[Rfam]
RNA sequence: ACUGAAAACAUAAUUGAGUGUAGCGCUGGUGAAUUCACCAACGAUUCAUCAACGCUGCACUCAAUGAUGUUUUCA
Number, nucleotide and partner (000 for none) at each position: 001a000002c000003u000004g000005a000006a072007a071008a070009c069010a068011u067012a000013a065014u064015u063016g062017a061018g060019u059020g058021u057022a056023g055024c054025g053026c000027u051028g050029g000030u048031g047032a046033a045034u044035u043036c000037a000038c000039c000040a000041a000042c000043g035044a034045u033046u032047c031048a030049u000050c028051a027052a000053c025054g024055c023056u022057g021058c020059a019060c018061u017062c016063a015064a014065u013066g000067a011068u010069g009070u008071u007072u006073u000074c000075a000
RNA: MIR397 microRNA precursor family